[Rfam]
RNA sequence: UUCUUAUCCAGAGAGAUGGAGGGACUGGCCCGAUGAAAUCUCAGCAACAGGCAUUUGAGGCACUGUGCUAAUUCCAGCAAGACAACCUUGGCAGAUAAGAA
Numbered sequence: 001u002u003c004u005u006a007u008c009c010a011g012a013g014a015g016a017u018g019g020a021g022g023g024a025c026u027g028g029c030c031c032g033a034u035g036a037a038a039u040c041u042c043a044g045c046a047a048c049a050g051g052c053a054u055u056u057g058a059g060g061c062a063c064u065g066u067g068c069u070a071a072u073u074c075c076a077g078c079a080a081g082a083c084a085a086c087c088u089u090g091g092c093a094g095a096u097a098a099g100a101a
Stems, first nucleotide, its partner, number of pairs: 001101008013042005021031003025077004043069004048065002050061001052059001073093001078090004
This 101-nucleotide sequence from Gracilibacillus dipsosauri belongs to the Rfam family "SAM riboswitch aptamer (S box leader)". NCBI's taxonomy places the organism under Bacteria, Bacillati, Bacillota, Bacillaceae, Gracilibacillus. Pairs were carried over by alignment from the consensus structure, which is taken from published work.